This 85-nucleotide sequence from Brassica carinata belongs to the Rfam family "small nucleolar RNA snoR114". Gene Ontology terms of the family: nucleolus and RNA processing. A search with the family's covariance model found it, with a score of 56 bits. Rfam classes the family as a C/D-box small nucleolar RNA.
[Rfam]
RNA sequence: GAGCUGUGAUGAAAUUAGGCAUUAGCGAAGGUUGGUUCCUUCGCACCCGUCUGAUAUUCGGAUUAUACGCCGUACACCUGAGCUC
Number, nucleotide and partner (000 for none) at each position: 001g085002a084003g083004c082005u000006g000007u000008g000009a000010u000011g000012a000013a000014a000015u000016u000017a000018g000019g000020c000021a000022u000023u000024a000025g000026c000027g000028a000029a000030g000031g000032u000033u000034g000035g000036u000037u000038c000039c000040u000041u000042c000043g000044c000045a000046c000047c000048c000049g000050u000051c000052u000053g000054a000055u000056a000057u000058u000059c000060g000061g000062a000063u000064u000065a000066u000067a000068c000069g000070c000071c000072g000073u000074a000075c000076a000077c000078c000079u000080g000081a000082g004083c003084u002085c001